Shown here is a 276-nucleotide RNA sequence from Cavia porcellus, a member of the family "Mason-Pfizer monkey virus packaging signal". Lineage of the source: Eukaryota > Gnathostomata > Hystricomorpha > Caviidae > Cavia.
RNA sequence: UGGUGCCCAACGUUGGGCUCAAGAAUGGGGGACUUCAUGAGGGAUGCUUUCAUGGGCCCAAAGUAGAAUAAAGGAGAAGAAAAUAGAGGACCUGACAACAUGGAAGCCUGCCACACCAUGCUGAACCUCAUUAACUGAACAGCAAUUAUGGGACAAGAAAUGAGCCAGCAUGAGAUUUUUGUUAAAGUCUAGGAAAGGCUUUAAAGGCGCAAGGAGCAAAGGUUAAAAUUAAGCAGUUGUGUCAAUAUUUUGAUUUUAUAAAAGAAGAUUGUCCUU
Numbered sequence: 001u002g003g004u005g006c007c008c009a010a011c012g013u014u015g016g017g018c019u020c021a022a023g024a025a026u027g028g029g030g031g032a033c034u035u036c037a038u039g040a041g042g043g044a045u046g047c048u049u050u051c052a053u054g055g056g057c058c059c060a061a062a063g064u065a066g067a068a069u070a071a072a073g074g075a076g077a078a079g080a081a082a083a084u085a086g087a088g089g090a091c092c093u094g095a096c097a098a099c100a101u102g103g104a105a106g107c108c109u110g111c112c113a114c115a116c117c118a119u120g121c122u123g124a125a126c127c128u129c130a131u132u133a134a135c136u137g138a139a140c141a142g143c144a145a146u147u148a149u150g151g152g153a154c155a156a157g158a159a160a161u162g163a164g165c166c167a168g169c170a171u172g173a174g175a176u177u178u179u180u181g182u183u184a185a186a187g188u189c190u191a192g193g194a195a196a197g198g199c200u201u202u203a204a205a206g207g208c209g210c211a212a213g214g215a216g217c218a219a220a221g222g223u224u225a226a227a228a229u230u231a232a233g234c235a236g237u238u239g240u241g242u243c244a245a246u247a248u249u250u251u252g253a254u255u256u257u258a259u260a261a262a263a264g265a266a267g268a269u270u271g272u273c274c275u276u
Base pairs, nucleotide, nucleotide: 006031007030008029012026013025014024036046037045038044086129087128088127095122096120097119101113102112103111136155137154140152143150144149161203162202163201164199165198166197210252211251212250213249214248216246220238221237223235261276262275264273265272

Annotation: Pairs were carried over by alignment from the consensus structure, which was predicted with PFOLD. It scores 96 bits against the family's covariance model. About the family: This family represents a group of sequences that are related to the Mason-Pfizer monkey virus (MPMV) packaging signal. The packaging signal is located in the 5' UTR and is required for specific RNA encapsidation.